[Rfam]
RNA: let-7 microRNA precursor family
RNA sequence: GCCGGCUGAGGUAGUAGUUUGUGCUGUUGGACGGGUUCACACAUUCUGGAGAUGACUGCGCAAUCUACUGCCUUCUGCCGGU
Number, nucleotide and partner (000 for none) at each position: 001g082002c081003c080004g079005g078006c077007u000008g074009a073010g072011g071012u070013a069014g068015u067016a066017g065018u000019u063020u062021g061022u060023g059024c058025u000026g056027u055028u000029g000030g000031a000032c000033g000034g040035g000036u000037u000038c000039a000040c034041a000042c000043a000044u051045u050046c000047u000048g000049g000050a045051g044052a000053u000054g000055a027056c026057u000058g024059c023060g022061c021062a020063a019064u000065c017066u016067a015068c014069u013070g012071c011072c010073u009074u008075c000076u000077g006078c005079c004080g003081g002082u001